[Rfam]
RNA sequence: AAAGUGUCUUAUGCGACCGCCAUGGAUUGGUUUAUAGCUGUUUGCUUUGCUUUU
Dot-bracket structure: (((..(.(..(.(((((.((.(((((....))))).)).))).)))..).))))
Shown here is a 54-nucleotide RNA from Tursiops truncatus, a member of the family "Editing element of GABA-3 exon 9". The family's RNA type in Rfam is cis-regulatory element. NCBI's taxonomy places the organism under Eukaryota, Opisthokonta, Vertebrata, Teleostomi, Tursiops. It is one of the family's seed sequences. For this family Rfam cites "Editing modifies the GABA(A) receptor subunit alpha3" (Ohlson et al., RNA, 2007).